[Rfam]
Shown here is a 147-nucleotide RNA sequence from Ictidomys tridecemlineatus, a member of the family "Small nucleolar RNA SNORA79". A reference for the family is Schattner et al. (2006), "A computational screen for mammalian pseudouridylation guide H/ACA RNAs", RNA. The source organism's lineage runs through Eukaryota, Sarcopterygii, Mammalia, Xerinae and Ictidomys.
RNA sequence: UGAUGACUGUUCCUCCUAUUGCUUAUAGGCUGGGCACUAGGAUUUUAUGUCAUCAUAAAAUUAAUUUGAUUUUCUUCACUCAGAGAAUAUUAGGAUAAUGGGAUUUAUUAUCUGUCUAUUCUCUGAAAUUUGCGGGAUCUAACACUU
Number, nucleotide and partner (000 for none) at each position: 001u055002g054003a053004u052005g051006a050007c049008u000009g000010u000011u000012c000013c000014u042015c041016c040017u039018a038019u000020u036021g035022c034023u033024u000025a000026u000027a000028g000029g000030c000031u000032g000033g023034g022035c021036a020037c000038u018039a017040g016041g015042a014043u000044u000045u000046u000047a000048u000049g007050u006051c005052a004053u003054c002055a001056u000057a000058a000059a000060a000061u000062u000063a000064a000065u000066u000067u000068g139069a138070u137071u136072u135073u134074c000075u000076u000077c000078a000079c000080u126081c125082a124083g123084a122085g121086a120087a119088u118089a117090u000091u000092a000093g113094g112095a111096u110097a109098a108099u107100g000101g000102g000103a000104u000105u000106u000107a099108u098109u097110a096111u095112c094113u093114g000115u000116c000117u089118a088119u087120u086121c085122u084123c083124u082125g081126a080127a000128a000129u000130u000131u000132g000133c000134g073135g072136g071137a070138u069139c068140u000141a000142a000143c000144a000145c000146u000147u000
Rfam's curators write: ACA65 (SNORA79) is a member of the H/ACA class of snoRNAs that guide the sites of modification of uridines to pseudouridines. Rfam classes the family as an H/ACA-box small nucleolar RNA.